[Rfam]
RNA sequence: UCCACCUUUUUAAUACAGUCCUGAGAGGCUGUAAAGGGGGAAUGAGGAUGGCGGGGUUUCCUGCUGUCGUUAUCCAUGCCCUCUUUGCGCCUGCGCAAUGAGGGUUUUUUAU
Numbered sequence: 001u002c003c004a005c006c007u008u009u010u011u012a013a014u015a016c017a018g019u020c021c022u023g024a025g026a027g028g029c030u031g032u033a034a035a036g037g038g039g040g041a042a043u044g045a046g047g048a049u050g051g052c053g054g055g056g057u058u059u060c061c062u063g064c065u066g067u068c069g070u071u072a073u074c075c076a077u078g079c080c081c082u083c084u085u086u087g088c089g090c091c092u093g094c095g096c097a098a099u100g101a102g103g104g105u106u107u108u109u110u111a112u
Stems, first nucleotide, its partner, number of pairs: 003039001005037005015032006042073004047068009076107001078105006085098005
PyrR binding site: a 112-nucleotide RNA from Mesobacillus campisalis. Rfam 15.1 lists 1,498 matches to the family in 930 species. The match comes from Rfam's covariance-model search (70 bits).